RNA sequence: CACUUGUAAAAGCAAAGCCGAUGAGAAUCGGUGACGCAAAGCUAAAGGGCCCCUCAGCUAACUGAGGCGGCAGCCAGCUGCCAAA
Number, nucleotide and partner (000 for none) at each position: 001c000002a000003c000004u000005u000006g000007u000008a000009a000010a000011a000012g037013c036014a000015a000016a000017g032018c031019c030020g029021a028022u027023g000024a000025g000026a000027a022028u021029c020030g019031g018032u017033g000034a000035c000036g013037c012038a000039a000040a079041g078042c077043u076044a000045a000046a000047g075048g074049g071050c070051c069052c000053c000054u065055c064056a063057g062058c000059u000060a000061a000062c057063u056064g055065a054066g000067g000068c000069g051070g050071c049072a000073g000074c048075c047076a043077g042078c041079u040080g000081c000082c000083a000084a000085a000
The record is an 85-nucleotide RNA sequence from Caproicibacterium amylolyticum, which matches "c-di-GMP-I riboswitch aptamer" in Rfam. Taxonomically the source falls in Caproicibacterium (Bacteria, Clostridia, Eubacteriales, Oscillospiraceae). A search with the family's covariance model found it, with a score of 62 bits.